[Rfam]
RNA sequence: UGCAUCCAGCAGGAAUUGAACCCGCGACUUCCCAAUUAUUAGUUUAGUGCUUUUACCAUUCAGCCAUGGAUGC
Numbered sequence: 001u002g003c004a005u006c007c008a009g010c011a012g013g014a015a016u017u018g019a020a021c022c023c024g025c026g027a028c029u030u031c032c033c034a035a036u037u038a039u040u041a042g043u044u045u046a047g048u049g050c051u052u053u054u055a056c057c058a059u060u061c062a063g064c065c066a067u068g069g070a071u072g073c
Stems, first nucleotide, its partner, number of pairs: 002073006009025002012022002038067002042064003046060004
Dot-bracket structure: .((((((.((.((.......)).))............((..(((.((((.......)))).))).))))))))
Shown here is a 73-nucleotide RNA sequence from Taxus wallichiana, a member of the family "Plastid-ycf2 5UTR RNA". Plastid ycf2 is a non-coding RNA (ncRNA) recognised in plastids. It was found in the prime untranslated region (5UTR) of ycf2 genes, it presents a tRNA-like motif which suggests it can be involved in mRNA maturation, particularly involved in defining the precise 5' end of the transcript. The family's RNA type in Rfam is cis-regulatory element. Taxonomically the source falls in Taxus (Eukaryota, Spermatophyta, Pinidae, Conifers II). The sequence is in the family's curated seed alignment. Pairs were carried over by alignment from the consensus structure, which was predicted with LocARNA.